Source information: Rfam assigns this 364-nucleotide RNA sequence from Brevundimonas sp. Root1279 to the family "Alphaproteobacteria transfer-messenger RNA". The organism belongs to Brevundimonas, within Bacteria.

Nucleotides: 364
Base pairs, nucleotide, nucleotide: 040057041056042055043054044053045052046051061199062198063197064196065195071192072191073190074187075186076185085177086176089174090173091172095111096110097109098108099107112160113159114158115157116156117155118154200214201213205224206223207222208221209220210219328344329343330342331341334361335360336359337358338357339356
Number, partner (000 for none) and nucleotide at each position: 001000c002000c003000u004000c005000u006000u007000g008000g009000a010000a011000g012000c013000c014000g015000g016000g017000c018000c019000c020000g021000g022000a023000a024000g025000c026000c027000c028000u029000a030000u031000a032000u033000u034000c035000c036000u037000c038000c039000u040057g041056u042055c043054c044053g045052g046051g047000u048000u049000c050000g051046c052045c053044c054043g055042g056041a057040c058000u059000a060000u061199g062198g063197c064196g065195a066000u067000a068000a069000a070000c071192g072191u073190g074187c075186c076185u077000g078000u079000a080000a081000u082000a083000a084000g085177c086176g087000g088000a089174c090173c091172g092000g093000a094000c095111c096110c097109g098108g099107g100000u101000g102000c103000g104000a105000u106000u107099c108098c109097c110096g111095g112160c113159g114158g115157c116156u117155c118154c119000a120000c121000c122000a123000u124000u125000u126000c127000u128000c129000c130000c131000c132000g133000c134000g135000u136000u137000a138000u139000c140000g141000g142000c143000g144000g145000a146000g147000c148000g149000a150000g151000c152000a153000u154118g155117g156116g157115g158114c159113c160112g161000a162000c163000u164000a165000g166000c167000a168000u169000c170000g171000a172091c173090g174089g175000a176086c177085g178000u179000g180000u181000a182000a183000a184000g185076a186075g187074g188000a189000u190073u191072g192071c193000u194000u195065u196064c197063g198062c199061u200214c201213g202000u203000c204000c205224u206223g207222a208221c209220c210219c211000a212000c213201c214200g215000u216000a217000u218000c219210g220209g221208g222207u223206c224205a225000u226000u227000u228000u229000c230000u231000a232000a233000c234000u235000g236000c237000g238000a239000a240000c241000g242000a243000u244000a245000a246000c247000u248000u249000c250000g251000c252000u253000g254000g255000g256000g257000a258000a259000u260000a261000c262000g263000c264000c265000g266000u267000c268000g269000c270000c271000g272000c273000g274000u275000a276000a277000u278000g279000c280000g281000g282000u283000u284000c285000c286000g287000g288000u289000a290000a291000u292000u293000c294000c295000a296000a297000u298000c299000u300000a301000a302000g303000u304000c305000c306000u307000g308000g309000g310000g311000g312000u313000u314000c315000a316000g317000a318000u319000c320000c321000u322000c323000a324000g325000g326000c327000g328344g329343g330342g331341c332000c333000c334361g335360g336359a337358g338357g339356g340000c341331g342330c343329c344328u345000g346000g347000c348000a349000a350000c351000a352000g353000a354000a355000g356339c357338c358337c359336u360335c361334c362000a363000c364000u